[Rfam]
Nucleotides: 087
Base pairs, nucleotide, nucleotide: 012037013036017032018031019030020029021028022027040081041080042079043078045077046076047075048072049071050070055066056065057064058063
Number, partner (000 for none) and nucleotide at each position: 001000a002000u003000u004000g005000c006000g007000g008000c009000u010000g011000g012037g013036c014000a015000a016000a017032c018031u019030u020029a021028c022027u023000g024000a025000a026000a027022a028021g029020u030019a031018a032017g033000g034000a035000c036013g037012c038000a039000a040081a041080g042079c043078c044000u045077c046076c047075g048072g049071c050070c051000u052000a053000c054000g055066g056065u057064c058063u059000u060000c061000a062000c063058g064057g065056a066055u067000c068000a069000c070050g071049g072048u073000a074000g075047c076046g077045g078043g079042g080041u081040u082000g083000c084000c085000a086000g087000c
c-di-GMP-I riboswitch aptamer: an 87-nucleotide RNA from Oxalobacteraceae bacterium IMCC9480. The family's consensus secondary structure is taken from published work. The match comes from Rfam's covariance-model search (74 bits).